[Rfam]
RNA sequence: GGGCCAGUGAUGACACUCUAGUUGUGCAGACACUCUAGGAGUGAAAGGAAGUGCAACAGCACCCAUAGAAUCUCUGAGGCCC
Numbered sequence: 001g002g003g004c005c006a007g008u009g010a011u012g013a014c015a016c017u018c019u020a021g022u023u024g025u026g027c028a029g030a031c032a033c034u035c036u037a038g039g040a041g042u043g044a045a046a047g048g049a050a051g052u053g054c055a056a057c058a059g060c061a062c063c064c065a066u067a068g069a070a071u072c073u074c075u076g077a078g079g080c081c082c
Stems, first nucleotide, its partner, number of pairs: 001082005
Annotation
A member of the RNA family "Small nucleolar RNA Z163/Z177 family" from Oryza meyeriana, 82 nucleotides long. Gene Ontology terms of the family: nucleolus and RNA processing. On this family, see Chen et al., Nucleic Acids Res 2003: "The high diversity of snoRNAs in plants: identification and comparative study of 120 snoRNA genes from Oryza sativa". Rfam classes the family as a C/D-box small nucleolar RNA. It scores 56 bits against the family's covariance model.